Annotation:
Rfam assigns this 339-nucleotide sequence from Monosporascus sp. MC13-8B to the family "Group I catalytic intron". Group I catalytic introns are large self-splicing ribozymes. They catalyse their own excision from mRNA, tRNA and rRNA precursors in a wide range of organisms. The core secondary structure consists of 9 paired regions (P1-P9).
RNA sequence: AAAACUGACCUAGAUAGCUGGUAGAAAAAUAGUGUGAGUUACUAUAUAAAGCCAGUAAGUGGAAGUGAACCUUCUGCUAUAAAUUCUCAAAUUGCGGGAAAGCCCUUAAGCAGUUCUUAACCAAGCAAACAUGGUAACAUAGUUUGUGGCACAGGUAAUGACUCGUGGUAUGGUAAAAUCAAGACUGAAAUACGAAAGUAUGAUGGGUAAUCCGCAGCCAAGCGUCCAGUGUUUAUUUAAAAUAAAGGCGUGCAGUUCAUCGACUAGAUGGGGAUUGGCUUUUUAUCCUAUUGGAUUAAAAGGCUUAAGAUAUAGUCAGGCCUCAUUCGAAAGAAUGCA
Numbered sequence: 001a002a003a004a005c006u007g008a009c010c011u012a013g014a015u016a017g018c019u020g021g022u023a024g025a026a027a028a029a030u031a032g033u034g035u036g037a038g039u040u041a042c043u044a045u046a047u048a049a050a051g052c053c054a055g056u057a058a059g060u061g062g063a064a065g066u067g068a069a070c071c072u073u074c075u076g077c078u079a080u081a082a083a084u085u086c087u088c089a090a091a092u093u094g095c096g097g098g099a100a101a102g103c104c105c106u107u108a109a110g111c112a113g114u115u116c117u118u119a120a121c122c123a124a125g126c127a128a129a130c131a132u133g134g135u136a137a138c139a140u141a142g143u144u145u146g147u148g149g150c151a152c153a154g155g156u157a158a159u160g161a162c163u164c165g166u167g168g169u170a171u172g173g174u175a176a177a178a179u180c181a182a183g184a185c186u187g188a189a190a191u192a193c194g195a196a197a198g199u200a201u202g203a204u205g206g207g208u209a210a211u212c213c214g215c216a217g218c219c220a221a222g223c224g225u226c227c228a229g230u231g232u233u234u235a236u237u238u239a240a241a242a243u244a245a246a247g248g249c250g251u252g253c254a255g256u257u258c259a260u261c262g263a264c265u266a267g268a269u270g271g272g273g274a275u276u277g278g279c280u281u282u283u284u285a286u287c288c289u290a291u292u293g294g295a296u297u298a299a300a301a302g303g304c305u306u307a308a309g310a311u312a313u314a315g316u317c318a319g320g321c322c323u324c325a326u327u328c329g330a331a332a333g334a335a336u337g338c339a
Stems, first nucleotide, its partner, number of pairs: 006025001010021004030041003082276005088270002093216006103207003107203001217256002222251004230244005260318001262317005278304008324337005